[Rfam]
RNA: skipping-rope RNA
RNA sequence: AAUGGCAGAGGACGGAAGGGGCAGCCGUCACCGGAUUGCAUAGGCAUGAGUAGGAGAUGCGGGAACUGUCAACCCGCCUGCCAUU
Dot-bracket structure: ((((((((..(((((....[[[[.))))).(((.............)).....)....(((((...]]]]..)))))))))))))